RNA: 6S-Flavo RNA
RNA sequence: ACUCAACACUAACAAAUUAAAAUGGGUGAAUCAUUGCUACUAAAGCAUGCUGCAUUUAUGCAGAUCCUUGAACAGCAAGCUAACCCAAAACUUGUUUAAAUCAGAGUUU
Numbered sequence: 001a002c003u004c005a006a007c008a009c010u011a012a013c014a015a016a017u018u019a020a021a022a023u024g025g026g027u028g029a030a031u032c033a034u035u036g037c038u039a040c041u042a043a044a045g046c047a048u049g050c051u052g053c054a055u056u057u058a059u060g061c062a063g064a065u066c067c068u069u070g071a072a073c074a075g076c077a078a079g080c081u082a083a084c085c086c087a088a089a090a091c092u093u094g095u096u097u098a099a100a101u102c103a104g105a106g107u108u109u
Stems, first nucleotide, its partner, number of pairs: 023087005034078005043069003050063004
Dot-bracket structure: ......................(((((......(((((....(((....((((......))))...)))....)))))....)))))......................